[Rfam]
RNA sequence: CUCAGGGUCCGGGCCCCUCUGGCGAGCGGGGCGCCGCUCGCGAUGUCGGACGUUUUCA
Numbered sequence: 001c002u003c004a005g006g007g008u009c010c011g012g013g014c015c016c017c018u019c020u021g022g023c024g025a026g027c028g029g030g031g032c033g034c035c036g037c038u039c040g041c042g043a044u045g046u047c048g049g050a051c052g053u054u055u056u057c058a
Stems, first nucleotide, its partner, number of pairs: 007051006022041008
Record summary:
A member of the RNA family "terC RNA" from Microvirga tunisiensis, 58 nucleotides long. It is annotated as a cis-regulatory element.